[Rfam]
About this RNA:
The family of this 98-nucleotide RNA sequence from Neobittarella massiliensis is "SAM riboswitch aptamer (S box leader)". The family's consensus secondary structure is taken from published work. It scores 78 bits against the family's covariance model.

RNA sequence: ACCUUAUUGCGAGUGGUGGAGGGACUAGGCCCUGUGAAACCCGGCAACCUGCAAGUUUGCAAGGUGCUAAAUCCUACGGUACUACCGAGAGAUAAGGC
Numbered sequence: 001a002c003c004u005u006a007u008u009g010c011g012a013g014u015g016g017u018g019g020a021g022g023g024a025c026u027a028g029g030c031c032c033u034g035u036g037a038a039a040c041c042c043g044g045c046a047a048c049c050u051g052c053a054a055g056u057u058u059g060c061a062a063g064g065u066g067c068u069a070a071a072u073c074c075u076a077c078g079g080u081a082c083u084a085c086c087g088a089g090a091g092a093u094a095a096g097g098c
Base pairs, nucleotide, nucleotide: 002097003096004095005094006093007092008091013042015041016040017039021032022031023030026076027075028074029073043068044067045066046065048064049063050061051060052059053058072090077087078086079085080084